A member of the RNA family "mir-87 microRNA precursor family" from Capitella teleta, 74 nucleotides long.

RNA sequence: CGUGGUGGCGCCUGACACUUUGACUCAAACCUCUUUUCGUGAGUAGGUGAGCAAAGUUUCAGGUGUAUCUGCGC
Numbered sequence: 001c002g003u004g005g006u007g008g009c010g011c012c013u014g015a016c017a018c019u020u021u022g023a024c025u026c027a028a029a030c031c032u033c034u035u036u037u038c039g040u041g042a043g044u045a046g047g048u049g050a051g052c053a054a055a056g057u058u059u060c061a062g063g064u065g066u067a068u069c070u071g072c073g074c
Stems, first nucleotide, its partner, number of pairs: 002072004009065007017057005024051004030047003
The source organism's lineage runs through Eukaryota, Opisthokonta, Lophotrochozoa, Sedentaria and Capitella. The family has 44 seed sequences and 420 matches in Rfam 15.1. On this family, see Sempere et al., Dev Biol 2003: "Temporal regulation of microRNA expression in Drosophila melanogaster mediated by hormonal signals and broad-Complex gene activity". The sequence is in the family's curated seed alignment.